This 97-nucleotide RNA from Parambassis ranga belongs to the Rfam family "Z30 small nucleolar RNA". Taxonomically the source falls in Parambassis (Eukaryota, Teleostei, Euacanthomorphacea, Percomorphaceae). The family's RNA type in Rfam is C/D-box small nucleolar RNA. The literature on the family includes a 2002 paper in Mol Cell Biol by Galardi et al., "Purified box C/D snoRNPs are able to reproduce site-specific 2'-O-methylation of target RNA in vitro".
RNA sequence: CUGCACUGAUGAUUGUAGAUGUGACUGACCUGGAAUUGCUGGCUUCCGAGUUGGCUCUGUUCAGGAAAUGACCUCAGUUAAUCUUCUCUCUGAGCAA
Number, nucleotide and partner (000 for none) at each position: 001c000002u000003g095004c094005a000006c000007u000008g000009a000010u000011g000012a000013u000014u000015g000016u000017a000018g000019a000020u000021g000022u000023g000024a000025c000026u000027g000028a000029c000030c000031u000032g000033g000034a000035a000036u000037u000038g055039c054040u053041g052042g000043c000044u000045u000046c000047c000048g000049a000050g000051u000052u041053g040054g039055c038056u000057c000058u000059g000060u000061u000062c000063a000064g000065g000066a000067a000068a000069u000070g000071a000072c000073c000074u000075c000076a000077g000078u000079u000080a000081a000082u000083c000084u000085u000086c000087u000088c000089u000090c000091u000092g000093a000094g004095c003096a000097a000